[Rfam]
RNA sequence: GGAGGGUGAUGGGUGCUGGUGUGCCCCGCAGUCUUCAAAACUGUUGUGUGGGGUUAGGAGCCUCACGGGUGGGUUCGAUUCCUACCACCUCC
Numbered sequence: 001g002g003a004g005g006g007u008g009a010u011g012g013g014u015g016c017u018g019g020u021g022u023g024c025c026c027c028g029c030a031g032u033c034u035u036c037a038a039a040a041c042u043g044u045u046g047u048g049u050g051g052g053g054u055u056a057g058g059a060g061c062c063u064c065a066c067g068g069g070u071g072g073g074u075u076c077g078a079u080u081c082c083u084a085c086c087a088c089c090u091c092c
Base pairs, nucleotide, nucleotide: 001092002091003090004089005088008085011026012025013024014023015022016021028044029043030042031041032040047067048066049065050064051063070084071083072082073081